Shown here is a 432-nucleotide sequence from Rhodococcoides trifolii, a member of the family "Bacterial RNase P class A". A search with the family's covariance model found it, with a score of 261 bits.

RNA sequence: CGAGUUGGCCGGGCGGCCGCGGCGAGGAGAACUGGCGACCGCGUGUCGUCAAGCUUCGUGCCGAGGAAAGUCCGGACUCCACAGAGCAGGGCGGUUGUUAACGGCAACCCGAGGCGACUCGCGGGACAGUGCCACAGAAAACAGACCGCCGGCGGGGCAUUCGUGCCACGCCGGUCAGGGUGAAACGGUGCGGUAAGAGCGCACCAGCACCUCGGGUGACCGAGGUGGCUAGGUAAACCCCGCCCGGAGCAAGGUCGAAGGUCGCACACCCGCUUGCGGUGCGUGCGACUGCGCAGGUGUUCGAGGGCUGCUCGCCCGAGCCUGCGGGUGGACCGCUAGAGGCACCCGGCGACGGUGUGUCCAGAUGGAUGGUCGCCACUCGGGAUCGAGAGAUCGCGAGGACAGGAUCCGGCUUAGAGGCCGACUCGCCCG
Numbered sequence: 001c002g003a004g005u006u007g008g009c010c011g012g013g014c015g016g017c018c019g020c021g022g023c024g025a026g027g028a029g030a031a032c033u034g035g036c037g038a039c040c041g042c043g044u045g046u047c048g049u050c051a052a053g054c055u056u057c058g059u060g061c062c063g064a065g066g067a068a069a070g071u072c073c074g075g076a077c078u079c080c081a082c083a084g085a086g087c088a089g090g091g092c093g094g095u096u097g098u099u100a101a102c103g104g105c106a107a108c109c110c111g112a113g114g115c116g117a118c119u120c121g122c123g124g125g126a127c128a129g130u131g132c133c134a135c136a137g138a139a140a141a142c143a144g145a146c147c148g149c150c151g152g153c154g155g156g157g158c159a160u161u162c163g164u165g166c167c168a169c170g171c172c173g174g175u176c177a178g179g180g181u182g183a184a185a186c187g188g189u190g191c192g193g194u195a196a197g198a199g200c201g202c203a204c205c206a207g208c209a210c211c212u213c214g215g216g217u218g219a220c221c222g223a224g225g226u227g228g229c230u231a232g233g234u235a236a237a238c239c240c241c242g243c244c245c246g247g248a249g250c251a252a253g254g255u256c257g258a259a260g261g262u263c264g265c266a267c268a269c270c271c272g273c274u275u276g277c278g279g280u281g282c283g284u285g286c287g288a289c290u291g292c293g294c295a296g297g298u299g300u301u302c303g304a305g306g307g308c309u310g311c312u313c314g315c316c317c318g319a320g321c322c323u324g325c326g327g328g329u330g331g332a333c334c335g336c337u338a339g340a341g342g343c344a345c346c347c348g349g350c351g352a353c354g355g356u357g358u359g360u361c362c363a364g365a366u367g368g369a370u371g372g373u374c375g376c377c378a379c380u381c382g383g384g385a386u387c388g389a390g391a392g393a394u395c396g397c398g399a400g401g402a403c404a405g406g407a408u409c410c411g412g413c414u415u416a417g418a419g420g421c422c423g424a425c426u427c428g429c430c431c432g
Stems, first nucleotide, its partner, number of pairs: 001428010012377007020063005026057003068415003072412005077249004084313004089245005094108005109123001110121004124240002129238002131234003146179002148175007156167004187205006207229001208227008253334004293325006305317004341361005346355003
The family's RNA type in Rfam is ribozyme.
Taxonomically the source falls in Rhodococcoides (Bacteria, Actinomycetota, Actinomycetes, Mycobacteriales).
Ribonuclease P (RNase P) is a ubiquitous endoribonuclease, found in archaea, bacteria and eukarya as well as chloroplasts and mitochondria.